[Rfam]
RNA: mir-544 microRNA precursor family
Organism: Leptonychotes weddellii
RNA sequence: AUCACCUGGGGAUUUUGUUAAAAUGCAGAUUCUGCUUCAGUAGGUCUGUGAAGGGGGCACGUAAUUCUGCAAUUGUAACAAGUUCCCUGGUGAUGUCAA
Numbered sequence: 001a002u003c004a005c006c007u008g009g010g011g012a013u014u015u016u017g018u019u020a021a022a023a024u025g026c027a028g029a030u031u032c033u034g035c036u037u038c039a040g041u042a043g044g045u046c047u048g049u050g051a052a053g054g055g056g057g058c059a060c061g062u063a064a065u066u067c068u069g070c071a072a073u074u075g076u077a078a079c080a081a082g083u084u085c086c087c088u089g090g091u092g093a094u095g096u097c098a099a
Base pairs, nucleotide, nucleotide: 003092004091005090009086010085011084014082015081016080017079018078019077020076021074022073025070026069027068028067029066031064